[Rfam]
Y RNA: a 98-nucleotide RNA from Microcebus murinus. Rfam classes the family as a non-coding RNA gene. Pairs were carried over by alignment from the consensus structure, which is taken from published work.

RNA sequence: UGCUGGUCUGAGAGCAGUGCUGUUUACAACCAAUUGAUCACAACCAGUUACAGAUUCCUUUGUUCCUUCUCCACUCCCACUGUUUCACUUGACCUCAA
Numbered sequence: 001u002g003c004u005g006g007u008c009u010g011a012g013a014g015c016a017g018u019g020c021u022g023u024u025u026a027c028a029a030c031c032a033a034u035u036g037a038u039c040a041c042a043a044c045c046a047g048u049u050a051c052a053g054a055u056u057c058c059u060u061u062g063u064u065c066c067u068u069c070u071c072c073a074c075u076c077c078c079a080c081u082g083u084u085u086c087a088c089u090u091g092a093c094c095u096c097a098a
Base pairs, nucleotide, nucleotide: 001097002096005094006093007092008091010090011089014086016081017080018079019078022076028064029063030062032060033059